[Rfam]
RNA sequence: UGCAUCCGAAGAUGGCGUCUGAAUACGGGGGAAUUAGCGGGGGAAGAGGUGUGUAAGUGUUCCGCGGAAGAAAAAAAAAAAGUGAAAGUCAGUUCAAGAAAGUUCCCGGGGGGAGCCUGCUGCACCUUCUUAAAGGUACAGUAGCGCCUAAGUAUGAGACAAGAAUUAAGUAAGCAUAAAGUUUUUGUUAAGCAAUUAAAAGAAGCUUUAAAGACAUGGGGAGUAAAGGUUAAGAGUAAUGAUCUUUUUAAGUUUUUUGACCUUAUUAAGGACACCUGUCUGU
Numbered sequence: 001u002g003c004a005u006c007c008g009a010a011g012a013u014g015g016c017g018u019c020u021g022a023a024u025a026c027g028g029g030g031g032a033a034u035u036a037g038c039g040g041g042g043g044a045a046g047a048g049g050u051g052u053g054u055a056a057g058u059g060u061u062c063c064g065c066g067g068a069a070g071a072a073a074a075a076a077a078a079a080a081a082g083u084g085a086a087a088g089u090c091a092g093u094u095c096a097a098g099a100a101a102g103u104u105c106c107c108g109g110g111g112g113g114a115g116c117c118u119g120c121u122g123c124a125c126c127u128u129c130u131u132a133a134a135g136g137u138a139c140a141g142u143a144g145c146g147c148c149u150a151a152g153u154a155u156g157a158g159a160c161a162a163g164a165a166u167u168a169a170g171u172a173a174g175c176a177u178a179a180a181g182u183u184u185u186u187g188u189u190a191a192g193c194a195a196u197u198a199a200a201a202g203a204a205g206c207u208u209u210a211a212a213g214a215c216a217u218g219g220g221g222a223g224u225a226a227a228g229g230u231u232a233a234g235a236g237u238a239a240u241g242a243u244c245u246u247u248u249u250a251a252g253u254u255u256u257u258u259g260a261c262c263u264u265a266u267u268a269a270g271g272a273c274a275c276c277u278g279u280c281u282g283u
Stems, first nucleotide, its partner, number of pairs: 005031003013025002036050001038048001089136002093133002100128002109123001111121002142162001144160001147158001149156002167210003170206002217259008227245006268283001270281004

Description:
This 283-nucleotide sequence from Sciurus vulgaris belongs to the Rfam family "Mason-Pfizer monkey virus packaging signal". From the family's description: This family represents a group of sequences that are related to the Mason-Pfizer monkey virus (MPMV) packaging signal. The packaging signal is located in the 5' UTR and is required for specific RNA encapsidation. The base pairs follow the family's consensus structure, which was predicted with PFOLD. A reference for the family is Mustafa et al. (2004), "Mutational analysis of the predicted secondary RNA structure of the Mason-Pfizer monkey virus packaging signal", Virus Res.